[Rfam]
RNA sequence: GCCGGGCUGGGUAACGCUAGCCUGUGACCCGAGUGGGGGCAUCAGGGUGACUGGACAUUGGCCUAAUCCAGAUGGUAGGGCCUCUGGCUGCUAUUUCCUGGCCCGCCCGCUCCAAGUGGAGAGUUGGGCUGCGGGACUCGAGCGAAGGCUUGGGUUUCGUUGCCCUUAGAGCGGAGGGCAAAGCGUAAGGCUGGCUUCACAGAGCAACGAUCACCUCCCGCUCUCUACGGUGGAAGGAUAACGGGCCGGUGCUUCCAAGGCCCAAUCAACGCCUAAUGGGUUGGCCUAAUCGAACAGUCACCUUU
Numbered sequence: 001g002c003c004g005g006g007c008u009g010g011g012u013a014a015c016g017c018u019a020g021c022c023u024g025u026g027a028c029c030c031g032a033g034u035g036g037g038g039g040c041a042u043c044a045g046g047g048u049g050a051c052u053g054g055a056c057a058u059u060g061g062c063c064u065a066a067u068c069c070a071g072a073u074g075g076u077a078g079g080g081c082c083u084c085u086g087g088c089u090g091c092u093a094u095u096u097c098c099u100g101g102c103c104c105g106c107c108c109g110c111u112c113c114a115a116g117u118g119g120a121g122a123g124u125u126g127g128g129c130u131g132c133g134g135g136a137c138u139c140g141a142g143c144g145a146a147g148g149c150u151u152g153g154g155u156u157u158c159g160u161u162g163c164c165c166u167u168a169g170a171g172c173g174g175a176g177g178g179c180a181a182a183g184c185g186u187a188a189g190g191c192u193g194g195c196u197u198c199a200c201a202g203a204g205c206a207a208c209g210a211u212c213a214c215c216u217c218c219c220g221c222u223c224u225c226u227a228c229g230g231u232g233g234a235a236g237g238a239u240a241a242c243g244g245g246c247c248g249g250u251g252c253u254u255c256c257a258a259g260g261c262c263c264a265a266u267c268a269a270c271g272c273c274u275a276a277u278g279g280g281u282u283g284g285c286c287u288a289a290u291c292g293a294a295c296a297g298u299c300a301c302c303u304u305u
Stems, first nucleotide, its partner, number of pairs: 001040003004023007028037003044304010056292001058289003061285003065281001068279003074273003078263006086255001090252001092251002098249008107237002111234004116228009126165004131160013166171001173218005182211001184209003191202003